Description
Rfam assigns this 107-nucleotide RNA from Robertkochia marina to the family "SAM riboswitch aptamer (S box leader)". Rfam describes the family as follows. The SAM riboswitch is found upstream of a number of genes which code for proteins involved in methionine or cysteine biosynthesis in Gram-positive bacteria. The SAM riboswitch acts at the level of transcription termination control. The predicted structure consists of a complex stem-loop region followed by a single stem loop terminator region. An alternative and mutually exclusive form involves bases in the 3' segment of helix 1 with those in the 5' region of helix 5 to form a structure termed the anti-terminator form. A search with the family's covariance model found it, with a score of 81 bits.
RNA sequence: AAGUUAUCAGGAAAGGCGGAGGGAUUAGACCCUGAGAAGCCUUAGCAACCCUUUUAUAUAUAAAAGAAGGUGCUACAUUCUACCUCCAUCAGGAGGAAAGAUAACAC
Numbered sequence: 001a002a003g004u005u006a007u008c009a010g011g012a013a014a015g016g017c018g019g020a021g022g023g024a025u026u027a028g029a030c031c032c033u034g035a036g037a038a039g040c041c042u043u044a045g046c047a048a049c050c051c052u053u054u055u056a057u058a059u060a061u062a063a064a065a066g067a068a069g070g071u072g073c074u075a076c077a078u079u080c081u082a083c084c085u086c087c088a089u090c091a092g093g094a095g096g097a098a099a100g101a102u103a104a105c106a107c
Base pairs, nucleotide, nucleotide: 003105004104005103006102007101008100013043014042015041016040017039021032022031023030026082027081028080029079044074045073046072047071049070050069051066052065053064054063078099083096084095085094086093087092